[Rfam]
RNA sequence: UUAUAAGAAAAUGUUUGUUUUUUAGGUUCAUAGAAUGUUUGAUGUAUCUAGUCUAUAUUAUGGACCAAAUACAUCAAACAUUCAAUGAACCUAAAAAGUAAACAUUUUCUUAUAA
Numbered sequence: 001u002u003a004u005a006a007g008a009a010a011a012u013g014u015u016u017g018u019u020u021u022u023u024a025g026g027u028u029c030a031u032a033g034a035a036u037g038u039u040u041g042a043u044g045u046a047u048c049u050a051g052u053c054u055a056u057a058u059u060a061u062g063g064a065c066c067a068a069a070u071a072c073a074u075c076a077a078a079c080a081u082u083c084a085a086u087g088a089a090c091c092u093a094a095a096a097a098g099u100a101a102a103c104a105u106u107u108u109c110u111u112a113u114a115a
Stems, first nucleotide, its partner, number of pairs: 002114006009107005015101011027089005033083012049067001051065002
Source information
MIR2593 microRNA precursor family: a 115-nucleotide RNA sequence from Trifolium medium. Rfam 15.1 lists 1,262 matches to the family in 6 species. Its family is annotated with miRNA-mediated post-transcriptional gene silencing and RISC complex in the Gene Ontology. NCBI's taxonomy places the organism under Eukaryota, Spermatophyta, Fabales, Hologalegina, Trifolium. The match comes from Rfam's covariance-model search (97 bits).